Source information:
Rfam assigns this 63-nucleotide sequence from Megalops atlanticus to the family "mir-155 microRNA precursor family". A search with the family's covariance model found it, with a score of 64 bits.
RNA sequence: AGGUUAAUGCUAAUCGUGAUAGGGGUGGUGCUAUGAAAAACUCCUACCUGUUAGCAUUAGCCU
Numbered sequence: 001a002g003g004u005u006a007a008u009g010c011u012a013a014u015c016g017u018g019a020u021a022g023g024g025g026u027g028g029u030g031c032u033a034u035g036a037a038a039a040a041c042u043c044c045u046a047c048c049u050g051u052u053a054g055c056a057u058u059a060g061c062c063u
Base pairs, nucleotide, nucleotide: 004060005059006058007057008056009055010054011053012052013051014050020046021045022044023043025041026040